A member of the RNA family "SAM riboswitch aptamer (S box leader)" from Lysinibacillus odysseyi, 116 nucleotides long. Pairs were carried over by alignment from the consensus structure, which is taken from published work. It scores 70 bits against the family's covariance model. Taxonomically the source falls in Lysinibacillus odysseyi (Bacteria, Bacillati, Bacillota, Bacilli).
RNA sequence: CUCUUAUCCCGAGCUGGUGGAGGGUCAGGCCCUAUGAAACCCGGCAACCUGCAAUACGAUUUUCGUAACGUGUUGGUGCCAACCUGAUGCAAGGAUAAUUCCUUGAACGAUAAGAG
Numbered sequence: 001c002u003c004u005u006a007u008c009c010c011g012a013g014c015u016g017g018u019g020g021a022g023g024g025u026c027a028g029g030c031c032c033u034a035u036g037a038a039a040c041c042c043g044g045c046a047a048c049c050u051g052c053a054a055u056a057c058g059a060u061u062u063u064c065g066u067a068a069c070g071u072g073u074u075g076g077u078g079c080c081a082a083c084c085u086g087a088u089g090c091a092a093g094g095a096u097a098a099u100u101c102c103u104u105g106a107a108c109g110a111u112a113a114g115a116g
Base pairs, nucleotide, nucleotide: 001116002115003114004113005112006111007110008109013042016041017040018039022032023031024030026089027088029085043080044079045078046077048076049075050072051071052070090105091104092103093102094101095100